[Rfam]
RNA sequence: CUGGCGUUGGCGCUGGGGAGUGGCCCCCAGAGCAGGCCUCCACUCCAUGCCUUCCUGGGGCCUGCACUCUUGUUCCAGGCCAG
Numbered sequence: 001c002u003g004g005c006g007u008u009g010g011c012g013c014u015g016g017g018g019a020g021u022g023g024c025c026c027c028c029a030g031a032g033c034a035g036g037c038c039u040c041c042a043c044u045c046c047a048u049g050c051c052u053u054c055c056u057g058g059g060g061c062c063u064g065c066a067c068u069c070u071u072g073u074u075c076c077a078g079g080c081c082a083g
Base pairs, nucleotide, nucleotide: 003081004080005079007078008077009076010075012073013072015070016069017068018067020065021064022063023062025060026059027058028057029056030055032054034052035051036050037049
Rfam assigns this 83-nucleotide RNA from Rhinolophus ferrumequinum to the family "mir-1343 microRNA precursor family". Gene Ontology terms of the family: RISC complex and miRNA-mediated post-transcriptional gene silencing. Pairs were carried over by alignment from the consensus structure, which was predicted with RNAalifold. Rfam 15.1 lists 238 matches to the family in 131 species.